Rfam assigns this 50-nucleotide sequence from Leptolyngbya sp. FACHB-321 to the family "Nitrogen stress-induced RNA 1".
[Rfam]
RNA sequence: UGGUAGAUGCACCCUGAUCAAUCCCUGGCUUCCCGCUAGGGAUUUUUUAU
Numbered sequence: 001u002g003g004u005a006g007a008u009g010c011a012c013c014c015u016g017a018u019c020a021a022u023c024c025c026u027g028g029c030u031u032c033c034c035g036c037u038a039g040g041g042a043u044u045u046u047u048u049a050u
Stems, first nucleotide, its partner, number of pairs: 002013003022042008
Lineage of the source: Bacteria > Cyanobacteriota > Cyanophyceae > Leptolyngbyales > Leptolyngbya.
Rfam 15.1 lists 962 matches to the family in 163 species.
Pairs were carried over by alignment from the consensus structure.